[Rfam]
RNA sequence: UGCACUCACUAACUGUAAGUCGCUCUGGAUAAGAGCGUCUGCUAAAUACUAGGUU
Numbered sequence: 001u002g003c004a005c006u007c008a009c010u011a012a013c014u015g016u017a018a019g020u021c022g023c024u025c026u027g028g029a030u031a032a033g034a035g036c037g038u039c040u041g042c043u044a045a046a047u048a049c050u051a052g053g054u055u
Base pairs, nucleotide, nucleotide: 014044015042016041017040021037022036023035024034025033026032
A member of the RNA family "UnaL2 LINE 3' element" from Coregonus sp. 'balchen', 55 nucleotides long. Lineage of the source: Eukaryota > Gnathostomata > Clupeocephala > Salmoniformes > Coregonus. A reference for the family is Baba et al. (2004), "Solution structure of an RNA stem-loop derived from the 3' conserved region of eel LINE UnaL2", RNA. The match comes from Rfam's covariance-model search (57 bits). Rfam classes the family as a cis-regulatory element.